[Rfam]
RNA: Mammalian CPEB3 ribozyme
Organism: Crocodylus porosus
RNA sequence: UCACAAAUUCAAGGCCAUAGCAGAAGCGUUCAUGGCAUAGCCUGGCAGAUUCCAACAAAUCUGAGAAUCCUGCU
Numbered sequence: 001u002c003a004c005a006a007a008u009u010c011a012a013g014g015c016c017a018u019a020g021c022a023g024a025a026g027c028g029u030u031c032a033u034g035g036c037a038u039a040g041c042c043u044g045g046c047a048g049a050u051u052c053c054a055a056c057a058a059a060u061c062u063g064a065g066a067a068u069c070c071u072g073c074u
Stems, first nucleotide, its partner, number of pairs: 013042003019074005025068001026038001028036001046063006